[Rfam]
A member of the RNA family "Fluoride riboswitch aptamer (crcB RNA motif)" from Facklamia miroungae, 83 nucleotides long.
Gene Ontology terms of the family: response to fluoride and positive regulation of gene expression.
RNA sequence: AGAUUUAAAGGAAAUGAAGUACUUCCUAUUUACUUUAAGUAAAGUAGAUAAACCGCUAAUUAGCUGAUGACUUCUGUGUGCUU
Dot-bracket structure: .........[[[[..(((((..]]]]............................(((....))).....))))).........
Numbered sequence: 001a002g003a004u005u006u007a008a009a010g011g012a013a014a015u016g017a018a019g020u021a022c023u024u025c026c027u028a029u030u031u032a033c034u035u036u037a038a039g040u041a042a043a044g045u046a047g048a049u050a051a052a053c054c055g056c057u058a059a060u061u062a063g064c065u066g067a068u069g070a071c072u073u074c075u076g077u078g079u080g081c082u083u
Stems, first nucleotide, its partner, number of pairs: 010026004016074005055064003

The source organism's lineage runs through Bacteria, Bacillati, Lactobacillales, Aerococcaceae and Facklamia.